RNA sequence: UAGGGAAGUCAGGGCCAGGAGCUCCCCCCUGAGCCCCGGGUAACCUUACAAAUAGGGGGGAG
Numbered sequence: 001u002a003g004g005g006a007a008g009u010c011a012g013g014g015c016c017a018g019g020a021g022c023u024c025c026c027c028c029c030u031g032a033g034c035c036c037c038g039g040g041u042a043a044c045c046u047u048a049c050a051a052a053u054a055g056g057g058g059g060g061a062g
Base pairs, nucleotide, nucleotide: 008041009040010039012036013035014034015033016031017030018029019028022060023059024058025057026056027055
The family of this 62-nucleotide sequence from Spermophilus dauricus is "Gag/pol translational readthrough site". The literature on the family includes a 1990 paper in Virus Genes by ten Dam et al., "RNA pseudoknots: translational frameshifting and readthrough on viral RNAs". The base pairs follow the family's consensus structure, which is taken from published work. It scores 72 bits against the family's covariance model.